[Rfam]
RNA sequence: CGGGUCAAUAAUGAGUACUGGUAGCAUGACAUGCGAUGAAUAGGUGUCUUGAACUCCGAGGUUCAU
Numbered sequence: 001c002g003g004g005u006c007a008a009u010a011a012u013g014a015g016u017a018c019u020g021g022u023a024g025c026a027u028g029a030c031a032u033g034c035g036a037u038g039a040a041u042a043g044g045u046g047u048c049u050u051g052a053a054c055u056c057c058g059a060g061g062u063u064c065a066u
Base pairs, nucleotide, nucleotide: 002064003063004062005061006060